[Rfam]
RNA sequence: GGUACAUUGUUUUUUCCAUGAUAAGCCCCGGAAACUUAUUAUGUUGAAUAUAAACAAUUG
Dot-bracket structure: .......(((((.(...((((((((.........)))))))).......).)))))....